[Rfam]
RNA sequence: GGUGACGUGGCCGAGUGGUUAUGGCGCUAGUUUCAGGUUAUCAACCUACUAGUGGGAAACCGCGUGAGUUCGAGUCUCACCGUCAUCA
Numbered sequence: 001g002g003u004g005a006c007g008u009g010g011c012c013g014a015g016u017g018g019u020u021a022u023g024g025c026g027c028u029a030g031u032u033u034c035a036g037g038u039u040a041u042c043a044a045c046c047u048a049c050u051a052g053u054g055g056g057a058a059a060c061c062g063c064g065u066g067a068g069u070u071c072g073a074g075u076c077u078c079a080c081c082g083u084c085a086u087c088a
Base pairs, nucleotide, nucleotide: 001087002086003085004084005083006082007081010025011024012023013022027052028051029050030049031048064080065079066078067077068076